About this RNA
Shown here is a 48-nucleotide sequence, a member of the family "DUF3800-XI RNA". The family's RNA type in Rfam is small RNA. From the family's description: Actinobacteria, Firmicutes, Proteobacteria, Spirochaetes (1 example). Rfam's curators put it in the seed alignment.

RNA sequence: UGAACUGAGCGAAAGCUCUUUGGUUCACCGUAGACGGGAAGAAUUUCC
Numbered sequence: 001u002g003a004a005c006u007g008a009g010c011g012a013a014a015g016c017u018c019u020u021u022g023g024u025u026c027a028c029c030g031u032a033g034a035c036g037g038g039a040a041g042a043a044u045u046u047c048c
Stems, first nucleotide, its partner, number of pairs: 001027006007018004